[Rfam]
RNA sequence: UCCAUCGUGAGAUGGAAUCUGAAGGAAGUCAGCGGCAAACCUCCGGCCCGAGGACCACGAACCCCAGGUGAGGCUAGCGACAGUUGGGUGAGCUUGCACAACAAAGCAAAGCCCAUGCUACCGAAGGCUGUCGAGAGUAAAUGGGGCGGGUAGAUGGAGGAAAAGAUAACGUC
Numbered sequence: 001u002c003c004a005u006c007g008u009g010a011g012a013u014g015g016a017a018u019c020u021g022a023a024g025g026a027a028g029u030c031a032g033c034g035g036c037a038a039a040c041c042u043c044c045g046g047c048c049c050g051a052g053g054a055c056c057a058c059g060a061a062c063c064c065c066a067g068g069u070g071a072g073g074c075u076a077g078c079g080a081c082a083g084u085u086g087g088g089u090g091a092g093c094u095u096g097c098a099c100a101a102c103a104a105a106g107c108a109a110a111g112c113c114c115a116u117g118c119u120a121c122c123g124a125a126g127g128c129u130g131u132c133g134a135g136a137g138u139a140a141a142u143g144g145g146g147c148g149g150g151u152a153g154a155u156g157g158a159g160g161a162a163a164a165g166a167u168a169a170c171g172u173c
Stems, first nucleotide, its partner, number of pairs: 001016006028173001030171001036165001040160006046151005062146005073138003078133006086114004092107004
RNA: Group II catalytic intron D1-D4-3